[Rfam]
RNA sequence: GGGAGGGGACGACCCCCCCCCCCUUCAAAAAAUAAGGGGGACGUGGAAGCUUCCCCU
Numbered sequence: 001g002g003g004a005g006g007g008g009a010c011g012a013c014c015c016c017c018c019c020c021c022c023c024u025u026c027a028a029a030a031a032a033u034a035a036g037g038g039g040g041a042c043g044u045g046g047a048a049g050c051u052u053c054c055c056c057u
Stems, first nucleotide, its partner, number of pairs: 001020003005016004036057005